[Rfam]
This 75-nucleotide sequence from Haemonchus placei belongs to the Rfam family "mir-5928 microRNA precursor family". Its family is annotated with miRNA-mediated post-transcriptional gene silencing and RISC complex in the Gene Ontology.
RNA sequence: GGCACAAACUCGAAGUAGAAUAGAUUAGUAUGGUCAGCUAGUCGUGCUAAUCUACCGUACUUCUAAUUUGGGCCC
Numbered sequence: 001g002g003c004a005c006a007a008a009c010u011c012g013a014a015g016u017a018g019a020a021u022a023g024a025u026u027a028g029u030a031u032g033g034u035c036a037g038c039u040a041g042u043c044g045u046g047c048u049a050a051u052c053u054a055c056c057g058u059a060c061u062u063c064u065a066a067u068u069u070g071g072g073c074c075c
Stems, first nucleotide, its partner, number of pairs: 001074003005070004012063006021054003025050006032043003
The match comes from Rfam's covariance-model search (59 bits).